[Rfam]
Shown here is a 102-nucleotide sequence from Solanum lycopersicum, a member of the family "Small nucleolar RNA Z157/R69/R10". The family's consensus secondary structure was predicted with PFOLD. A reference for the family is Chen et al. (2003), "The high diversity of snoRNAs in plants: identification and comparative study of 120 snoRNA genes from Oryza sativa", Nucleic Acids Res.
RNA sequence: AUGUGUGUGAUGAGGAAGCAACUUUGUGGACUAGAGUUUCUGAUCUGGGGAUUAGACCCCCCAUUUGGUUGAAGACAAACCCUUGGCUGUCUGAGCACACUU
Numbered sequence: 001a002u003g004u005g006u007g008u009g010a011u012g013a014g015g016a017a018g019c020a021a022c023u024u025u026g027u028g029g030a031c032u033a034g035a036g037u038u039u040c041u042g043a044u045c046u047g048g049g050g051a052u053u054a055g056a057c058c059c060c061c062c063a064u065u066u067g068g069u070u071g072a073a074g075a076c077a078a079a080c081c082c083u084u085g086g087c088u089g090u091c092u093g094a095g096c097a098c099a100c101u102u
Stems, first nucleotide, its partner, number of pairs: 001102001003100006037074004044067001046063004
The family is grouped with related families in Rfam's "SNORD52 clan".